[Rfam]
RNA: R2 RNA element
Organism: Agrilus planipennis
RNA sequence: AGUUAAUUCCUGGAUCUUUAACAAACCAGGGCUUAAGAGGACCUUGAUUUGUCCUAGAAAGGCCUGAGGUAUAGGGGUUCUAGUCGGUAGGUCCGAGGACUUCUUCCUCGGGAAUCCGACACUACCUAGUCGUACGGACGGCUGGGUUUCUUUUGAAGAUUUCCCCUCUUCCACGAAA
Dot-bracket structure: ..............(((((.................)))))......(((((.............((((....(((......(((((....((((((((.....))))))))...)))))....((.................)).................)))..)))).))))).